Rfam assigns this 79-nucleotide RNA from Denticeps clupeoides to the family "Small nucleolar RNA SNORD72". Rfam 15.1 lists 726 matches to the family in 499 species.
RNA sequence: GGCUGACCUAUGAUGUGUCAAAAAUAAAUGUCUGAACAAAUGACAUUCCAGUGAUAUAAACCUUACGCUGAGGAAAGCC
Numbered sequence: 001g002g003c004u005g006a007c008c009u010a011u012g013a014u015g016u017g018u019c020a021a022a023a024a025u026a027a028a029u030g031u032c033u034g035a036a037c038a039a040a041u042g043a044c045a046u047u048c049c050a051g052u053g054a055u056a057u058a059a060a061c062c063u064u065a066c067g068c069u070g071a072g073g074a075a076a077g078c079c
Base pairs, nucleotide, nucleotide: 002078003077004076007073008072
About this RNA: Rfam describes the family as follows. snoRNA HBII-240 belongs to the CD family of snoRNAs. It is the human orthologue of the mouse MBII-240 and is predicted to guide 2'O-ribose methylation of the large 28S rRNA at residue U4590. Taxonomically the source falls in Denticeps (Eukaryota, Metazoa, Teleostei, Clupei). The base pairs follow the family's consensus structure. By type it is a C/D-box small nucleolar RNA.